[Rfam]
RNA sequence: AGUAUCAGAGGAUGAAACCUUAUAACCAUCUUAGGACACCUUCUGACACAGUGCAAUCACACUGUGAAUGAGAAGGCAUUUCUUUCUGAUGAUGCU
Numbered sequence: 001a002g003u004a005u006c007a008g009a010g011g012a013u014g015a016a017a018c019c020u021u022a023u024a025a026c027c028a029u030c031u032u033a034g035g036a037c038a039c040c041u042u043c044u045g046a047c048a049c050a051g052u053g054c055a056a057u058c059a060c061a062c063u064g065u066g067a068a069u070g071a072g073a074a075g076g077c078a079u080u081u082c083u084u085u086c087u088g089a090u091g092a093u094g095c096u
Base pairs, nucleotide, nucleotide: 001096002095003094004093005092006091007090044050045049
A member of the RNA family "Small nucleolar RNA snoR31/Z110/Z27" from Oryza barthii, 96 nucleotides long. The literature on the family includes a 2003 paper in Nucleic Acids Res by Chen et al., "The high diversity of snoRNAs in plants: identification and comparative study of 120 snoRNA genes from Oryza sativa". NCBI's taxonomy places the organism under Eukaryota, Petrosaviidae, Poales, Poaceae, Oryza. This family contains several related snoRNAs including R31, Z27 and Z110.